[Rfam]
Nucleotides: 089
Base pairs, nucleotide, nucleotide: 001089002088003087004086005085006084007083008082011026012025013024014023015022016021028044029043030042031041032040047063048062049061050060051059066080067079068078069077
Number, partner (000 for none) and nucleotide at each position: 001089g002088g003087a004086a005085g006084c007083g008082u009000u010000u011026c012025g013024u014023c015022a016021c017000c018000g019000g020000u021016g022015u023014g024013g025012c026011g027000c028044c029043u030042g031041g032040u033000c034000u035000u036000c037000a038000a039000a040032a041031c042030c043029a044028g045000u046000g047063g048062c049061g050060g051059g052000c053000u054000c055000a056000u057000c058000c059051c060050c061049c062048g063047c064000g065000g066080u067079a068078g069077g070000u071000u072000c073000g074000a075000c076000u077069c078068c079067u080066a081000u082008a083007c084006g085005c086004u087003u088002c089001c
Notes
The family of this 89-nucleotide sequence from Oceanidesulfovibrio indonesiensis is "Selenocysteine transfer RNA". The organism belongs to Oceanidesulfovibrio, within Bacteria.